[Rfam]
RNA sequence: GUGUAAUUGAUGAGUUACUCGGAUUCCCCUUCAAGACUUUUUGGAUGAUGUAGAGCCGAUAUUCUGAUGCA
Number, nucleotide and partner (000 for none) at each position: 001g000002u071003g070004u069005a068006a000007u000008u000009g000010a000011u000012g000013a000014g000015u000016u000017a000018c000019u000020c000021g000022g000023a000024u000025u000026c000027c000028c000029c000030u000031u000032c000033a000034a000035g000036a000037c000038u000039u000040u000041u000042u000043g000044g000045a000046u000047g000048a000049u000050g000051u000052a000053g000054a000055g000056c000057c000058g000059a000060u000061a000062u000063u000064c000065u000066g000067a000068u005069g004070c003071a002
Small nucleolar RNA snoR60: a 71-nucleotide sequence from Trifolium medium.
The family is grouped with related families in Rfam's "SNORD101 clan".
Lineage of the source: Eukaryota > Viridiplantae > Papilionoideae > Hologalegina > Trifolium.
A reference for the family is Barneche et al. (2000), "Fibrillarin genes encode both a conserved nucleolar protein and a novel small nucleolar RNA involved in ribosomal RNA methylation in Arabidopsis thaliana", J Biol Chem.
The family has 10 seed sequences and 1,133 matches in Rfam 15.1.